Description:
A member of the RNA family "MIR2275 microRNA precursor family" from Zizania palustris, 100 nucleotides long. The match comes from Rfam's covariance-model search (72 bits). Gene Ontology terms of the family: miRNA-mediated post-transcriptional gene silencing and RISC complex. Rfam 15.1 lists 785 matches to the family in 111 species.
RNA sequence: GCACUGAAAGUGAGAGUUGGAUGAAAACAAACUGAAACUGACUGAUCAGACCACCCCAACAGAGUCAGCUUGUUUUCCUCCAAUAUCUCACCUUCUGCAG
Dot-bracket structure: ...(.(((..((((.((((((.((((((((.((((.............................)))).)))))))).))))))..))))..))).)...
Numbered sequence: 001g002c003a004c005u006g007a008a009a010g011u012g013a014g015a016g017u018u019g020g021a022u023g024a025a026a027a028c029a030a031a032c033u034g035a036a037a038c039u040g041a042c043u044g045a046u047c048a049g050a051c052c053a054c055c056c057c058a059a060c061a062g063a064g065u066c067a068g069c070u071u072g073u074u075u076u077c078c079u080c081c082a083a084u085a086u087c088u089c090a091c092c093u094u095c096u097g098c099a100g
Stems, first nucleotide, its partner, number of pairs: 004097001006095003011090004016084006023077008032068004